A member of the RNA family "saliva-tongue-1 RNA", 109 nucleotides long. It is annotated as a small RNA. Rfam's curators put it in the seed alignment.

[Rfam]
RNA sequence: AGUGGUACGUCUCCCACUGACCGUAAUCCAGUAUGUUGUGUACGCAUCGCAGCGUAUAGUAGGAAACCAGGUUACGUGUCCUCCUUAAUUGAGUAGUAAGGCCACUGUG
Numbered sequence: 001a002g003u004g005g006u007a008c009g010u011c012u013c014c015c016a017c018u019g020a021c022c023g024u025a026a027u028c029c030a031g032u033a034u035g036u037u038g039u040g041u042a043c044g045c046a047u048c049g050c051a052g053c054g055u056a057u058a059g060u061a062g063g064a065a066a067c068c069a070g071g072u073u074a075c076g077u078g079u080c081c082u083c084c085u086u087a088a089u090u091g092a093g094u095a096g097u098a099a100g101g102c103c104a105c106u107g108u109g
Base pairs, nucleotide, nucleotide: 001018002017003016004015005014019080020079021078022076023075024074025073026072027071028070041056042055043054044053045052083101084100085099086098087097